The family of this 99-nucleotide sequence from Pseudochelatococcus contaminans is "EcpR1". Its family is annotated with negative regulation of cell cycle, regulation of translation in response to stress and mRNA binding in the Gene Ontology. By type it is a small RNA. Lineage of the source: Bacteria > Pseudomonadota > Hyphomicrobiales > Chelatococcaceae > Pseudochelatococcus.
[Rfam]
RNA sequence: AUUCCCUACGGAGUGCUCAGGUCCGCCGCAUCUCCUGGGUCCGUGGGGCACCGGCCGGUGAGCGUCGCGUUUUAUCGCAUGCUCCCGGCCGGACUUCUU
Numbered sequence: 001a002u003u004c005c006c007u008a009c010g011g012a013g014u015g016c017u018c019a020g021g022u023c024c025g026c027c028g029c030a031u032c033u034c035c036u037g038g039g040u041c042c043g044u045g046g047g048g049c050a051c052c053g054g055c056c057g058g059u060g061a062g063c064g065u066c067g068c069g070u071u072u073u074a075u076c077g078c079a080u081g082c083u084c085c086c087g088g089c090c091g092g093a094c095u096u097c098u099u
Stems, first nucleotide, its partner, number of pairs: 004048007016039006051092008